[Rfam]
RNA sequence: AUGUGGAAUAGAGGUGCGGCUUUUAUCAGUACUUGUCUGGAGUUCGGGGACGAGGAAGGACAGGGAAAGGAAAAUGCCGCCGAAGUUUGUUUUGGGUUGCCGGCCCGAAGCAGGCUGGUACCGUGCCCGAACAGGGGCGGUAUUGUCACAGAAGCCACUGCUUUUGUGGAGCGCUAAUCCGCAG
Numbered sequence: 001a002u003g004u005g006g007a008a009u010a011g012a013g014g015u016g017c018g019g020c021u022u023u024u025a026u027c028a029g030u031a032c033u034u035g036u037c038u039g040g041a042g043u044u045c046g047g048g049g050a051c052g053a054g055g056a057a058g059g060a061c062a063g064g065g066a067a068a069g070g071a072a073a074a075u076g077c078c079g080c081c082g083a084a085g086u087u088u089g090u091u092u093u094g095g096g097u098u099g100c101c102g103g104c105c106c107g108a109a110g111c112a113g114g115c116u117g118g119u120a121c122c123g124u125g126c127c128c129g130a131a132c133a134g135g136g137g138c139g140g141u142a143u144u145g146u147c148a149c150a151g152a153a154g155c156c157a158c159u160g161c162u163u164u165u166g167u168g169g170a171g172c173g174c175u176a177a178u179c180c181g182c183a184g
Base pairs, nucleotide, nucleotide: 006179007178009176010175011174016080017079018078019077020076021074022073023072024071032064033063034062035061036060037059038058084116085115086114087113088112089111090110091109092108093107094106095105117144118143119142120141121140122139123138124137126135127134146169147168148167149166150165151164152163

Record summary: This 184-nucleotide sequence from Thermoactinomyces daqus belongs to the Rfam family "Lysine riboswitch aptamer". The match comes from Rfam's covariance-model search (111 bits). NCBI's taxonomy places the organism under Bacteria, Bacillati, Bacilli, Thermoactinomycetaceae, Thermoactinomyces. About the family: Riboswitches are metabolite binding domains within certain messenger RNAs that serve as precision sensors for their corresponding targets. The family's consensus secondary structure is taken from published work.